Background: This 80-nucleotide RNA from Anabas testudineus belongs to the Rfam family "mir-219 microRNA precursor family". The literature on the family includes a 2003 paper in Science by Lim et al., "Vertebrate microRNA genes". Gene Ontology terms of the family: miRNA-mediated post-transcriptional gene silencing and RISC complex. It scores 69 bits against the family's covariance model. Pairs were carried over by alignment from the consensus structure, which was predicted with RNAalifold.
[Rfam]
Nucleotides: 080
Base pairs, nucleotide, nucleotide: 002079004077005076007074009071010070011069012068014067015066016065017064018063021060022059023058024057025056026055027054028053029052030051031050
Number, partner (000 for none) and nucleotide at each position: 001000u002079c003000u004077g005076g006000a007074g008000c009071u010070g011069a012068u013000u014067g015066u016065c017064c018063a019000a020000a021060c022059g023058c024057a025056a026055u027054u028053c029052u030051u031050g032000c033000g034000u035000c036000u037000g038000c039000c040000u041000u042000u043000g044000u045000g046000a047000a048000a049000c050031c051030a052029g053028g054027a055026g056025u057024u058023g059022u060021g061000g062000a063018u064017g065016g066015a067014c068012a069011u070010c071009a072000c073000g074007c075000c076005c077004c078000u079002g080000g